[Rfam]
RNA sequence: UGGCUGUGACGACAAAAGGAUAUUAUGUUGAUUCUGAUUCGUAAUACCAUUUAAGGACCAAAUCGGUGAUGACCUUAUUUGUGCGUGUCUGAGCCAA
Numbered sequence: 001u002g003g004c005u006g007u008g009a010c011g012a013c014a015a016a017a018g019g020a021u022a023u024u025a026u027g028u029u030g031a032u033u034c035u036g037a038u039u040c041g042u043a044a045u046a047c048c049a050u051u052u053a054a055g056g057a058c059c060a061a062a063u064c065g066g067u068g069a070u071g072a073c074c075u076u077a078u079u080u081g082u083g084c085g086u087g088u089c090u091g092a093g094c095c096a097a
Stems, first nucleotide, its partner, number of pairs: 001096004
The family of this 97-nucleotide RNA from Paspalum vaginatum is "small nucleolar RNA snoR126". Taxonomically the source falls in Paspalum (Eukaryota, Streptophyta, Spermatophyta, Andropogonodae). A search with the family's covariance model found it, with a score of 58 bits. It is annotated as a C/D-box small nucleolar RNA. Rfam 15.1 lists 423 matches to the family in 200 species.